Rfam assigns this 70-nucleotide sequence from Rodentolepis nana to the family "HDV ribozyme from F. prausnitzii".

RNA sequence: GGUGUGCUAUAGACUUACCUCCACGUGGUGCACUCUGGGCAACGUAUUUUCAUACGGCAAAAAAGCCUUU
Numbered sequence: 001g002g003u004g005u006g007c008u009a010u011a012g013a014c015u016u017a018c019c020u021c022c023a024c025g026u027g028g029u030g031c032a033c034u035c036u037g038g039g040c041a042a043c044g045u046a047u048u049u050u051c052a053u054a055c056g057g058c059a060a061a062a063a064a065g066c067c068u069u070u
Stems, first nucleotide, its partner, number of pairs: 001036002004033004017029003043056005
It scores 46 bits against the family's covariance model.
Taxonomically the source falls in Rodentolepis (Eukaryota, Eumetazoa, Cyclophyllidea, Hymenolepididae).
Pairs were carried over by alignment from the consensus structure, which is taken from published work.
Rfam 15.1 lists 3,803 matches to the family in 91 species.